[Rfam]
RNA sequence: UAAGCCAGAAGAGGCGCGCCGCCCAGGUAUUAUGUCUGAGUAACCAGUACGCAGAUGGCAUAAGAGGGGGAGCGGCGCCGAGGUAACACGUAUCUGGUCGUACGCGUUAUCGGCUGCAGGGGCUGAAUCCCCUGGGUUGUCACCAGAAACGUCCGGCAGUCGUUCGUUUCGCAAGGUGGGGCGCUUCUGGGUGU
Numbered sequence: 001u002a003a004g005c006c007a008g009a010a011g012a013g014g015c016g017c018g019c020c021g022c023c024c025a026g027g028u029a030u031u032a033u034g035u036c037u038g039a040g041u042a043a044c045c046a047g048u049a050c051g052c053a054g055a056u057g058g059c060a061u062a063a064g065a066g067g068g069g070g071a072g073c074g075g076c077g078c079c080g081a082g083g084u085a086a087c088a089c090g091u092a093u094c095u096g097g098u099c100g101u102a103c104g105c106g107u108u109a110u111c112g113g114c115u116g117c118a119g120g121g122g123c124u125g126a127a128u129c130c131c132c133u134g135g136g137u138u139g140u141c142a143c144c145a146g147a148a149a150c151g152u153c154c155g156g157c158a159g160u161c162g163u164u165c166g167u168u169u170c171g172c173a174a175g176g177u178g179g180g181g182c183g184c185u186u187c188u189g190g191g192u193g194u
Base pairs, nucleotide, nucleotide: 006189007188008187009186010185011184016078017077018076019075020074021073022072024070030063031062032061033060034059035058036057082111083110084109085108086107087106089104090103091102092101093100112138113137114136115135117134118133119132120131121130122129140179141178142177143176144175
The record is a 194-nucleotide RNA from Mangrovibacter sp. MFB070, which matches "Lysine riboswitch aptamer" in Rfam. A search with the family's covariance model found it, with a score of 100 bits.